[Rfam]
RNA sequence: GGUAGUAACAGCGAAGAGGGGUGGGAAUCCCCUCCGCCAGAAAGGGCCAGGGUUCCUCGGCAACGGUCGUCGGCCGAGGGUCAGCCGGUCCUAAGCGAGCCCGUAACACGGCGCUCGCAAAAGGGAAACAGGUUAAUAUUCCUGUGCCGUGGAGGUAGGCAUCGCGGCAACGCAAAGCUCAGCUCCUGACGUUUCGGGGUAGGCUGACAGGGGUAGCCGCCCCUGCUAACCUGCCGAAUACCGGGAAGUACCGUCAAGGUGAGAACCGGUAGAAGGGGGGAAUGGCCUGCCUAGUGCAGGUUCAGCCGAUCCCUGGAACCCAUGAAAAGGGAGCUGAGAACGAUCCUCCACGCCCGUACCGAGAACCGACACAGGUGCCCCAGGGUGAGAAGCCCAAGGCGUCU
Numbered sequence: 001g002g003u004a005g006u007a008a009c010a011g012c013g014a015a016g017a018g019g020g021g022u023g024g025g026a027a028u029c030c031c032c033u034c035c036g037c038c039a040g041a042a043a044g045g046g047c048c049a050g051g052g053u054u055c056c057u058c059g060g061c062a063a064c065g066g067u068c069g070u071c072g073g074c075c076g077a078g079g080g081u082c083a084g085c086c087g088g089u090c091c092u093a094a095g096c097g098a099g100c101c102c103g104u105a106a107c108a109c110g111g112c113g114c115u116c117g118c119a120a121a122a123g124g125g126a127a128a129c130a131g132g133u134u135a136a137u138a139u140u141c142c143u144g145u146g147c148c149g150u151g152g153a154g155g156u157a158g159g160c161a162u163c164g165c166g167g168c169a170a171c172g173c174a175a176a177g178c179u180c181a182g183c184u185c186c187u188g189a190c191g192u193u194u195c196g197g198g199g200u201a202g203g204c205u206g207a208c209a210g211g212g213g214u215a216g217c218c219g220c221c222c223c224u225g226c227u228a229a230c231c232u233g234c235c236g237a238a239u240a241c242c243g244g245g246a247a248g249u250a251c252c253g254u255c256a257a258g259g260u261g262a263g264a265a266c267c268g269g270u271a272g273a274a275g276g277g278g279g280g281a282a283u284g285g286c287c288u289g290c291c292u293a294g295u296g297c298a299g300g301u302u303c304a305g306c307c308g309a310u311c312c313c314u315g316g317a318a319c320c321c322a323u324g325a326a327a328a329g330g331g332a333g334c335u336g337a338g339a340a341c342g343a344u345c346c347u348c349c350a351c352g353c354c355c356g357u358a359c360c361g362a363g364a365a366c367c368g369a370c371a372c373a374g375g376u377g378c379c380c381c382a383g384g385g386u387g388a389g390a391a392g393c394c395c396a397a398g399g400c401g402u403c404u
Stems, first nucleotide, its partner, number of pairs: 016034006035401004044380004050360002055079006064072002086356003090124002095118006101111003128145005148352008185331003191319009202307005208225005230279003234276001240270005250260003291296001366375002383395003

Rfam assigns this 404-nucleotide part of an RNA from Fervidicoccus fontis to the family "Archaeal large subunit ribosomal RNA".
It scores 2866 bits against the family's covariance model.
The family's consensus secondary structure is taken from published work.
Taxonomically the source falls in Fervidicoccus fontis (Archaea, Thermoproteati, Thermoproteota, Thermoprotei).